[Rfam]
RNA sequence: UUCCGGGUCACGCCCCCCCACCGGGGCGCUUUUCUUCUGUAAGGGAGAGGUUU
Number, nucleotide and partner (000 for none) at each position: 001u000002u000003c000004c000005g000006g000007g000008u000009c000010a000011c028012g027013c026014c025015c024016c023017c000018c000019c000020a000021c000022c000023g016024g015025g014026g013027c012028g011029c000030u000031u000032u000033u048034c047035u046036u045037c044038u043039g000040u000041a000042a000043g038044g037045g036046a035047g034048a033049g000050g000051u000052u000053u000

This 53-nucleotide RNA sequence from Acidocella aromatica belongs to the Rfam family "serC leader".
Rfam classes the family as a cis-regulatory leader.
This family is a putative regulatory RNA structure that is found upstream of the serC-serA operon in some alpha-proteobacteria. The final stem of the structure overlaps the ribosome binding site of the serC reading frame.
Lineage of the source: Bacteria > Pseudomonadati > Alphaproteobacteria > Acetobacterales > Acidocella.
Pairs were carried over by alignment from the consensus structure.
Its family is annotated with regulation of gene expression in the Gene Ontology.
On this family, see Corbino et al., Genome Biol 2005: "Evidence for a second class of S-adenosylmethionine riboswitches and other regulatory RNA motifs in alpha-proteobacteria".